[Rfam]
RNA sequence: GGAUAACAUUUUUUGCUAUUCAUGAUCAAUAACAUAAUGACACGUCGGAUAACUUUUUCACAUGUCAUUAUGUUAUUGGCCAGGGAUAGCAAAACAAUGAUAUCC
Numbered sequence: 001g002g003a004u005a006a007c008a009u010u011u012u013u014u015g016c017u018a019u020u021c022a023u024g025a026u027c028a029a030u031a032a033c034a035u036a037a038u039g040a041c042a043c044g045u046c047g048g049a050u051a052a053c054u055u056u057u058u059c060a061c062a063u064g065u066c067a068u069u070a071u072g073u074u075a076u077u078g079g080c081c082a083g084g085g086a087u088a089g090c091a092a093a094a095c096a097a098u099g100a101u102a103u104c105c
Base pairs, nucleotide, nucleotide: 002104003103004102005101011094012093013092014091015090016089017088018087019086021084023082024081026079027078028077029076030075031074032073033072034071035070036069037068038067039066040065041064042063044061045060047058048057049056
Dot-bracket structure: .((((.....(((((((((.(.((.(((((((((((((((((.((.(((......))).)).))))))))))))))))).)).).)))))))))......)))).